[Rfam]
Nucleotides: 145
Base pairs, nucleotide, nucleotide: 002144003143004142005141006140007139008138010136011135012134013133014132015131016130018128019127021125023123024122028118029117030116031115032114033113
Number, partner (000 for none) and nucleotide at each position: 001000u002144g003143u004142u005141a006140a007139a008138a009000u010136u011135u012134u013133u014132a015131u016130c017000u018128a019127u020000c021125u022000a023123u024122a025000a026000u027000a028118u029117u030116a031115a032114a033113a034000a035000u036000u037000a038000a039000u040000a041000u042000g043000g044000u045000u046000a047000a048000c049000g050000g051000a052000a053000u054000a055000a056000u057000u058000u059000g060000a061000c062000a063000a064000u065000g066000a067000c068000g069000u070000a071000u072000a073000a074000c075000a076000u077000g078000u079000c080000a081000u082000g083000u084000a085000u086000a087000c088000c089000u090000u091000a092000u093000a094000u095000u096000a097000a098000u099000a100000u101000a102000c103000a104000g105000a106000g107000a108000c109000u110000a111000u112000u113033u114032u115031u116030u117029a118028a119000c120000u121000g122024u123023a124000a125021a126000a127019a128018u129000a130016g131015a132014u133013a134012a135011a136010a137000u138008u139007u140006u141005u142004a143003a144002u145000a